[Rfam]
RNA sequence: GGGCGCGGCCGAAGCGUAGAUCCCGGGGACCAUUGCGGUCACCAACGCCUCAUUCGAGGCGCCUCCCCGGGGGAGCGAGUGGUGAGACCGGCGUCCGCGUUG
Numbered sequence: 001g002g003g004c005g006c007g008g009c010c011g012a013a014g015c016g017u018a019g020a021u022c023c024c025g026g027g028g029a030c031c032a033u034u035g036c037g038g039u040c041a042c043c044a045a046c047g048c049c050u051c052a053u054u055c056g057a058g059g060c061g062c063c064u065c066c067c068c069g070g071g072g073g074a075g076c077g078a079g080u081g082g083u084g085a086g087a088c089c090g091g092c093g094u095c096c097g098c099g100u101u102g
Stems, first nucleotide, its partner, number of pairs: 002101007010093002014076002022071008037089002039085005
Dot-bracket structure: .(((((((.((..((......((((((((.......[[[[[[[....................))))))))...))....]]]]]..]]..)).))))))).